[Rfam]
RNA: MIR535 microRNA precursor family
RNA sequence: CAGAUCUCGUGACUACGAGAGAGAGCACGCUUGUGCACAGUCAUGUCCCUUGUAUGAAUAUCAACAAGCGUGCUCUCUCUCGUUGUCAAGCUAUG
Numbered sequence: 001c002a003g004a005u006c007u008c009g010u011g012a013c014u015a016c017g018a019g020a021g022a023g024a025g026c027a028c029g030c031u032u033g034u035g036c037a038c039a040g041u042c043a044u045g046u047c048c049c050u051u052g053u054a055u056g057a058a059u060a061u062c063a064a065c066a067a068g069c070g071u072g073c074u075c076u077c078u079c080u081c082g083u084u085g086u087c088a089a090g091c092u093a094u095g
Stems, first nucleotide, its partner, number of pairs: 010088004016082002020078002023075001025073010